[Rfam]
A member of the RNA family "mir-574 microRNA precursor family" from Cnephaeus nilssonii, 80 nucleotides long. Its Rfam clan is "mir-574 microRNA precursor clan". NCBI's taxonomy places the organism under Eukaryota, Eumetazoa, Vertebrata, Gnathostomata, Cnephaeus. Pairs were carried over by alignment from the consensus structure, which was predicted with RNAalifold.

RNA sequence: AGACCAGAGAGAGGGGCAGGGUCUGAUCUGCAGCCUCAGUCGCAGCUGUUGAUCAGUACUUGCCUCUCUCUUUCGCUCCC
Numbered sequence: 001a002g003a004c005c006a007g008a009g010a011g012a013g014g015g016g017c018a019g020g021g022u023c024u025g026a027u028c029u030g031c032a033g034c035c036u037c038a039g040u041c042g043c044a045g046c047u048g049u050u051g052a053u054c055a056g057u058a059c060u061u062g063c064c065u066c067u068c069u070c071u072u073u074c075g076c077u078c079c080c
Base pairs, nucleotide, nucleotide: 007072008071009070010069011068012067013066014065015064016063017062018061019060023056024055025054026053027052028051031048032047033046034045